M-box riboswitch aptamer (ykoK leader): a 165-nucleotide sequence from Clostridium sp. CT7.
RNA sequence: AUAAAUAUUCAUUUAAGCGAGGCUCCUAUACAAGAUAUACGCUUCUGCCCAGAAAUAUCGAAAGAUACCAAUGGGUGAACAGAUAUUAUCGAAUAAGGUAUUAUCUAACGAAGCUGAGACAUUCUCAAAGCUGUAUAGUGCUAAAGCUCAAUAAAAAAUAUGAUU
Number, nucleotide and partner (000 for none) at each position: 001a000002u000003a000004a000005a161006u160007a159008u158009u157010c000011a152012u151013u000014u096015a000016a148017g147018c146019g000020a000021g142022g141023c140024u000025c000026c138027u137028a136029u135030a134031c133032a000033a132034g131035a000036u000037a000038u000039a000040c000041g114042c113043u112044u111045c110046u000047g076048c075049c074050c073051a072052g000053a000054a000055a000056u067057a066058u065059c064060g000061a000062a000063a000064g059065a058066u057067a056068c000069c000070a000071a000072u051073g050074g049075g048076u047077g000078a000079a000080c000081a000082g105083a104084u103085a102086u000087u000088a099089u098090c097091g000092a000093a000094u000095a000096a014097g090098g089099u088100a000101u000102u085103a084104u083105c082106u000107a000108a000109c000110g045111a044112a043113g042114c041115u000116g126117a125118g124119a000120c000121a000122u000123u000124c118125u117126c116127a000128a000129a000130g000131c034132u033133g031134u030135a029136u028137a027138g026139u000140g023141c022142u021143a000144a000145a000146g018147c017148u016149c000150a000151a012152u011153a000154a000155a000156a000157a009158a008159u007160a006161u005162g000163a000164u000165u000
The base pairs follow the family's consensus structure.